[Rfam]
RNA sequence: UCUUGAUCUCAACCCGUGGUCCUUACCUUUUGUGCCUCCAAUUCCCCUUUCCUUCCCCUGUGGCAGGAAGGAAAGGGGAAUUGGAGGCACAAAAGGUAAGGACCACGGGUUGAGAUCAAGUGCCA
Numbered sequence: 001u002c003u004u005g006a007u008c009u010c011a012a013c014c015c016g017u018g019g020u021c022c023u024u025a026c027c028u029u030u031u032g033u034g035c036c037u038c039c040a041a042u043u044c045c046c047c048u049u050u051c052c053u054u055c056c057c058c059u060g061u062g063g064c065a066g067g068a069a070g071g072a073a074a075g076g077g078g079a080a081u082u083g084g085a086g087g088c089a090c091a092a093a094a095g096g097u098a099a100g101g102a103c104c105a106c107g108g109g110u111u112g113a114g115a116u117c118a119a120g121u122g123c124c125a
Base pairs, nucleotide, nucleotide: 010112011111012110013109014108015107016106018104019103021101022100023099024098025097026096027095028094029093030092031091032090033089034088035087036086037085038084039083043079044078045077046076047075048074049073050072051071052070053069054068055067056066
RNA: mraW RNA